[Rfam]
RNA sequence: ACGAUCCCCACUGGAGAGAGGCGGCACACCACACGUGAUGCCGUCCACCGAAGGAGCAAACCGCAGUUUGCGCACCGUUUGUGUGCAGCAAGCCCGGCGAAUCUCUCAGGUAAAGCGGACAGCGGGGGCAAA
Numbered sequence: 001a002c003g004a005u006c007c008c009c010a011c012u013g014g015a016g017a018g019a020g021g022c023g024g025c026a027c028a029c030c031a032c033a034c035g036u037g038a039u040g041c042c043g044u045c046c047a048c049c050g051a052a053g054g055a056g057c058a059a060a061c062c063g064c065a066g067u068u069u070g071c072g073c074a075c076c077g078u079u080u081g082u083g084u085g086c087a088g089c090a091a092g093c094c095c096g097g098c099g100a101a102u103c104u105c106u107c108a109g110g111u112a113a114a115g116c117g118g119a120c121a122g123c124g125g126g127g128g129c130a131a132a
Stems, first nucleotide, its partner, number of pairs: 006127004011122003020045007047111003050107002054105003061097003
RNA: Glycine riboswitch aptamer